[Rfam]
A member of the RNA family "tRNA" from Caviibacterium pharyngocola, 74 nucleotides long. The base pairs follow the family's consensus structure, which is taken from published work. By type it is a transfer RNA.
RNA sequence: GCGCCCUUAGCUCAGCUGGAUAGAGCAACGGCCUUCUAAGCCGUAGGUCAUUGGUUCGAAUCCAAUAGGGCGUG
Dot-bracket structure: (((((((..((((.........)))).(((((.......))))).....(((((.......)))))))))))).